[Rfam]
RNA sequence: ACCGUCCUUGUCAUGGGGUGAGAGCUUGUUCAAUGAGCGUUUAGCGAGAGCAAGACUGCUGACACCAUUACAAUAAACAAACCGCAUCGCCUCGUAAAGAGGUCAGGGUGCAAUUUUUAAAGCC
Numbered sequence: 001a002c003c004g005u006c007c008u009u010g011u012c013a014u015g016g017g018g019u020g021a022g023a024g025c026u027u028g029u030u031c032a033a034u035g036a037g038c039g040u041u042u043a044g045c046g047a048g049a050g051c052a053a054g055a056c057u058g059c060u061g062a063c064a065c066c067a068u069u070a071c072a073a074u075a076a077a078c079a080a081a082c083c084g085c086a087u088c089g090c091c092u093c094g095u096a097a098a099g100a101g102g103u104c105a106g107g108g109u110g111c112a113a114u115u116u117u118u119a120a121a122g123c124c
Base pairs, nucleotide, nucleotide: 006018007017008016009015020059022057025054026053027052028051029050030049031048037045038044084111085110086109087108088107090102091101092100093099
Dot-bracket structure: .....((((.....)))).(.(..(((((((.....((.....))..)))))))..).)........................(((((.((((.....))))....))))).............
Overview
The family of this 124-nucleotide RNA sequence from Biomphalaria glabrata is "U4atac minor spliceosomal RNA". It scores 83 bits against the family's covariance model. Rfam describes the family as follows. U4atac is an essential component of the minor U12-type spliceosome complex which is required for removal of the rarer class of eukaryotic introns (AT-AC, U12-type). The family's consensus secondary structure is taken from published work.